[Rfam]
RNA sequence: GCACUUGAUAGAGGCGCGGGCGAGAUUGAGCGCGGGCGAGCCGGCAGGCAGCGACCCCGCAGCAAGGCGGACCCGCCGAACACGGCAACCGGGCGCGGGCGCCGUGUGGGCUUGCGGGGAACACUCGUAAGACUGUCUGCAAGCAUGCAGGAGCGCUAUCAGCCAA
Numbered sequence: 001g002c003a004c005u006u007g008a009u010a011g012a013g014g015c016g017c018g019g020g021c022g023a024g025a026u027u028g029a030g031c032g033c034g035g036g037c038g039a040g041c042c043g044g045c046a047g048g049c050a051g052c053g054a055c056c057c058c059g060c061a062g063c064a065a066g067g068c069g070g071a072c073c074c075g076c077c078g079a080a081c082a083c084g085g086c087a088a089c090c091g092g093g094c095g096c097g098g099g100c101g102c103c104g105u106g107u108g109g110g111c112u113u114g115c116g117g118g119g120a121a122c123a124c125u126c127g128u129a130a131g132a133c134u135g136u137c138u139g140c141a142a143g144c145a146u147g148c149a150g151g152a153g154c155g156c157u158a159u160c161a162g163c164c165a166a
Base pairs, nucleotide, nucleotide: 006161007160008159009158010157011156016076017075018074019073020072024068034057036056080107081106082105083104084103085102086101089098090097091096108134109133111131112130113129114128115127116126117125118124136151137150138149139148140147141146
The record is a 166-nucleotide RNA sequence from Enorma massiliensis, which matches "Lysine riboswitch aptamer" in Rfam. Gene Ontology term of the family: lysine biosynthetic process. Rfam's curators write: Riboswitches are metabolite binding domains within certain messenger RNAs that serve as precision sensors for their corresponding targets. Allosteric rearrangement of mRNA structure is mediated by ligand binding, and this results in modulation of gene expression.